[Rfam]
RNA sequence: UGAUGAAGAUUUCCUCGGCAGUUAACUACCGAGGUUUUCUUCGCCAGUUUUCUUCGGUAGUUAACUGCCGAAAUUGUUU
Number, nucleotide and partner (000 for none) at each position: 001u000002g000003a000004u000005g000006a000007a000008g000009a000010u000011u000012u000013c000014c000015u072016c070017g069018g068019c067020a066021g065022u064023u063024a062025a061026c060027u059028a058029c057030c056031g055032a054033g053034g052035u000036u000037u000038u000039c000040u000041u000042c000043g000044c000045c000046a000047g000048u000049u000050u000051u000052c034053u033054u032055c031056g030057g029058u028059a027060g026061u025062u024063a023064a022065c021066u020067g019068c018069c017070g016071a000072a015073a000074u000075u000076g000077u000078u000079u000
Shown here is a 79-nucleotide RNA sequence from Medicago truncatula, a member of the family "MIR2629 microRNA precursor family". It scores 60 bits against the family's covariance model. The source organism's lineage runs through Eukaryota, Viridiplantae, Spermatophyta, Hologalegina and Medicago.